RNA sequence: AGCACAAGUGAUGGACAAACAAGGGACUUAAUACUGAAUGAAAUUUGAUGUGAUCUAGAUGGCUGAUGUGC
Dot-bracket structure: .(((((............................................................)))))
Rfam assigns this 71-nucleotide sequence from Galemys pyrenaicus to the family "Small nucleolar RNA SNORD82". The source organism's lineage runs through Eukaryota, Craniata, Amniota, Theria and Galemys. snoRNA U82 or Z25 is found in both humans and mice. Gene Ontology terms of the family: nucleolus and RNA processing. A search with the family's covariance model found it, with a score of 59 bits. It is annotated as a C/D-box small nucleolar RNA. The family has 27 seed sequences and 649 matches in Rfam 15.1.